Rfam assigns this 70-nucleotide RNA sequence from Shewanella algae to the family "RNA-OUT". A search with the family's covariance model found it, with a score of 43 bits. By type it is an antisense RNA. Pairs were carried over by alignment from the consensus structure, which was predicted with PFOLD. Transposition of insertion sequence IS10 is regulated by an anti-sense RNA which inhibits transposase expression when IS10 is present in multiple copies per cell. The organism belongs to Shewanella, within Bacteria.
Nucleotides: 070
Base pairs, nucleotide, nucleotide: 004064005063006062007061008060009059010058011057012056013055014054015053016052018050034046036044037043
Number, partner (000 for none) and nucleotide at each position: 001000u002000u003000u004064c005063g006062c007061a008060u009059g010058g011057u012056g013055u014054u015053g016052g017000a018050u019000c020000u021000g022000g023000u024000a025000g026000u027000u028000u029000u030000u031000u032000g033000g034046c035000g036044a037043a038000a039000u040000c041000a042000a043037u044036u045000a046034g047000a048000u049000c050018a051000a052016u053015c054014a055013a056012c057011a058010c059009c060008a061007u062006g063005c064004g065000u066000g067000u068000c069000u070000a